Description
The family of this 84-nucleotide RNA from Niallia nealsonii is "c-di-GMP-I riboswitch aptamer". The source organism's lineage runs through Bacteria, Bacillati, Bacillota, Caryophanales and Niallia. The match comes from Rfam's covariance-model search (78 bits). Rfam links the family to the GO term cyclic-di-GMP binding.
RNA sequence: UAGAAUCAAAGGCAAAUUUUACGAAAGUAAAAGACGCAAAGCCACGGGCCUAAUGUGUACAGCGAUGGCAGCCGGGCUACCGAG
Numbered sequence: 001u002a003g004a005a006u007c008a009a010a011g012g013c014a015a016a017u018u019u020u021a022c023g024a025a026a027g028u029a030a031a032a033g034a035c036g037c038a039a040a041g042c043c044a045c046g047g048g049c050c051u052a053a054u055g056u057g058u059a060c061a062g063c064g065a066u067g068g069c070a071g072c073c074g075g076g077c078u079a080c081c082g083a084g
Base pairs, nucleotide, nucleotide: 012037013036017032018031019030020029021028022027040078041077042076043075045074046073047072048069049068050067055063056062